The record is an 84-nucleotide RNA from Oncorhynchus mykiss, which matches "Small nucleolar RNA SNORD35" in Rfam. The match comes from Rfam's covariance-model search (64 bits). NCBI's taxonomy places the organism under Eukaryota, Metazoa, Craniata, Salmonidae, Oncorhynchus. A reference for the family is Nicoloso et al. (1996), "Intron-encoded, antisense small nucleolar RNAs: the characterization of nine novel species points to their direct role as guides for the 2'-O-ribose methylation of rRNAs", J Mol Biol. U35 is a C/D box snoRNA located in intron 6 of ribosomal protein L13A and intron 3 of ribosomal protein S11 in humans and at homologous positions in mouse and chicken ribosomal protein genes. U35 guides the methylation of 2'-O-ribose sites in 28S rRNA.
RNA sequence: UGCAAAUGAUGUUUUUCUCACGAUGGUCUUCCAAGCCCAUGUGGCGCUGACGACACUGCCUAAUGGCUACACUGAUGCAGUUUG
Numbered sequence: 001u002g003c004a005a006a007u008g009a010u011g012u013u014u015u016u017c018u019c020a021c022g023a024u025g026g027u028c029u030u031c032c033a034a035g036c037c038c039a040u041g042u043g044g045c046g047c048u049g050a051c052g053a054c055a056c057u058g059c060c061u062a063a064u065g066g067c068u069a070c071a072c073u074g075a076u077g078c079a080g081u082u083u084g
Stems, first nucleotide, its partner, number of pairs: 001079004